RNA sequence: GUUCCCAAUGAUGUUUUUUGUUUUUUACCAUGCUAAUGCUGAAAUUCUUUGAUGAACCUUUAAUGUAAAUCCUGAGGGAACU
Numbered sequence: 001g002u003u004c005c006c007a008a009u010g011a012u013g014u015u016u017u018u019u020g021u022u023u024u025u026u027a028c029c030a031u032g033c034u035a036a037u038g039c040u041g042a043a044a045u046u047c048u049u050u051g052a053u054g055a056a057c058c059u060u061u062a063a064u065g066u067a068a069a070u071c072c073u074g075a076g077g078g079a080a081c082u
Stems, first nucleotide, its partner, number of pairs: 001081005
Notes: Small nucleolar RNA snoR53Y: an 82-nucleotide sequence from Zingiber officinale. The family's RNA type in Rfam is C/D-box small nucleolar RNA. Rfam 15.1 lists 513 matches to the family in 230 species. Its Rfam clan is "snoR53 clan". On this family, see Brown et al., RNA 2001: "Multiple snoRNA gene clusters from Arabidopsis". The match comes from Rfam's covariance-model search (61 bits). Gene Ontology terms of the family: RNA processing and nucleolus.